[Rfam]
The family of this 209-nucleotide RNA sequence from Thalassobium sp. R2A62 is "permuted transfer-messenger RNA". Taxonomically the source falls in Thalassobium (Bacteria, Pseudomonadati, Alphaproteobacteria, Rhodobacterales). The literature on the family includes a 1996 paper in RNA by Williams and Bartel, "Phylogenetic analysis of tmRNA secondary structure".
RNA sequence: GAACAUAAACGCGCAUGUAAUAAGCGGAUUGGACCCGGGGGCGGUACCCGGCGUCUCCACCAACAUCCCUCGUUUGGGGACCAUGGGGACGAAAUAGGAUCGACAAACGUCUAAAGAUGUUAGCUUUGUUUCGGUGAGUUACCACCGUUAUCGGUACAUUCAAGCUAGUUGCAAACGACAACAAAGCUCCGAUGGCACUCGCAGCGUAA
Number, nucleotide and partner (000 for none) at each position: 001g131002a130003a129004c128005a127006u000007a000008a000009a000010c000011g000012c000013g120014c119015a118016u117017g000018u000019a000020a000021u000022a000023a000024g000025c109026g108027g000028a000029u106030u105031g104032g000033a000034c000035c051036c050037g049038g048039g047040g000041g000042c000043g000044g000045u000046a000047c039048c038049c037050g036051g035052c091053g090054u089055c088056u087057c086058c085059a000060c000061c000062a000063a000064c000065a000066u000067c000068c000069c000070u000071c000072g000073u000074u000075u000076g000077g000078g000079g000080a000081c000082c000083a000084u000085g058086g057087g056088g055089a054090c053091g052092a000093a000094a000095u000096a000097g000098g000099a000100u000101c000102g000103a000104c031105a030106a029107a000108c026109g025110u000111c000112u000113a000114a000115a000116g000117a016118u015119g014120u013121u000122a000123g000124c000125u000126u000127u005128g004129u003130u002131u001132c147133g146134g145135u144136g000137a000138g000139u000140u000141a000142c000143c000144a135145c134146c133147g132148u000149u000150a000151u000152c000153g000154g000155u000156a000157c000158a000159u000160u000161c000162a000163a000164g000165c000166u000167a000168g000169u000170u000171g000172c000173a000174a000175a000176c000177g000178a000179c000180a000181a000182c000183a000184a000185a000186g000187c000188u000189c000190c000191g000192a000193u000194g000195g000196c000197a000198c000199u000200c000201g000202c000203a000204g000205c000206g000207u000208a000209a000
Rfam describes the family as follows. Bacterial tmRNA, also known as 10Sa RNA or SsrA, is named for its dual tRNA and mRNA-like properties.
Rfam classes the family as a non-coding RNA gene.
A search with the family's covariance model found it, with a score of 140 bits.